[Rfam]
Rfam assigns this 73-nucleotide RNA from Sitophilus oryzae to the family "mir-12 microRNA precursor family".
A reference for the family is Werren et al. (2010), "Functional and evolutionary insights from the genomes of three parasitoid Nasonia species", Science.
Its family is annotated with RISC complex and miRNA-mediated post-transcriptional gene silencing in the Gene Ontology.
The source organism's lineage runs through Eukaryota, Allotriocarida, Neoptera, Dryophthorinae and Sitophilus.
RNA sequence: AGGGUUUGAGUAUUACAUCAGGUACUGGUUUCCAUUUUAACAGCAAUCGGUCCCUGAGUAACACUUACACCCU
Number, nucleotide and partner (000 for none) at each position: 001a073002g072003g071004g070005u069006u000007u000008g000009a065010g064011u063012a000013u000014u000015a059016c058017a000018u056019c000020a000021g054022g053023u000024a051025c050026u049027g048028g047029u046030u000031u000032c000033c000034a000035u000036u000037u000038u000039a000040a000041c000042a000043g000044c000045a000046a029047u028048c027049g026050g025051u024052c000053c022054c021055u000056g018057a000058g016059u015060a000061a000062c000063a011064c010065u009066u000067a000068c000069a005070c004071c003072c002073u001